[Rfam]
RNA: ZMP/ZTP riboswitch aptamer (pfl RNA motif)
Organism: Arthrobacter terrae
RNA sequence: UAACCGUGUUGUAACUGGCGUUAGGUGGGGCACCACCGGGGAGCAGCGAGAUAAACGACCACGGAUCGUACGCCUGGGCCGAGGGU
Numbered sequence: 001u002a003a004c005c006g007u008g009u010u011g012u013a014a015c016u017g018g019c020g021u022u023a024g025g026u027g028g029g030g031c032a033c034c035a036c037c038g039g040g041g042a043g044c045a046g047c048g049a050g051a052u053a054a055a056c057g058a059c060c061a062c063g064g065a066u067c068g069u070a071c072g073c074c075u076g077g078g079c080c081g082a083g084g085g086u
Stems, first nucleotide, its partner, number of pairs: 003052001005050001007048006015040002017074005025036004062081003066078002